This 91-nucleotide RNA sequence from Streptomyces sp. Ru72 belongs to the Rfam family "Streptomyces RNA 3202". The match comes from Rfam's covariance-model search (72 bits). Identified by deep sequencing of transcriptome at the end of exponential growth phase. Appears smaller on northern blot than sequencing transcript.
[Rfam]
RNA sequence: CCGAGUCCCGACGCACUCCCCCCGGCGCCGGGACUCUCCCCGGGCCGGUCCCCGGCGCCACUCCCCCCUGGCGCCGGGGACCGGCUCUUUC
Numbered sequence: 001c002c003g004a005g006u007c008c009c010g011a012c013g014c015a016c017u018c019c020c021c022c023c024g025g026c027g028c029c030g031g032g033a034c035u036c037u038c039c040c041c042g043g044g045c046c047g048g049u050c051c052c053c054g055g056c057g058c059c060a061c062u063c064c065c066c067c068c069u070g071g072c073g074c075c076g077g078g079g080a081c082c083g084g085c086u087c088u089u090u091c
Stems, first nucleotide, its partner, number of pairs: 005034006012027003042087010053076008

The family's RNA type in Rfam is small RNA.